[Rfam]
RNA sequence: GGGGGUGCGAUGAUUAUAAAAAAUUCCUCGUUCUGAAUGCUAUUGCCAUGGCAUGACAGACACAUUUACACCCAUAGAAUAUGAGCACC
Numbered sequence: 001g002g003g004g005g006u007g008c009g010a011u012g013a014u015u016a017u018a019a020a021a022a023a024u025u026c027c028u029c030g031u032u033c034u035g036a037a038u039g040c041u042a043u044u045g046c047c048a049u050g051g052c053a054u055g056a057c058a059g060a061c062a063c064a065u066u067u068a069c070a071c072c073c074a075u076a077g078a079a080u081a082u083g084a085g086c087a088c089c
Stems, first nucleotide, its partner, number of pairs: 003089002006087002
RNA: Small nucleolar RNA snoR8a
Organism: Camellia sinensis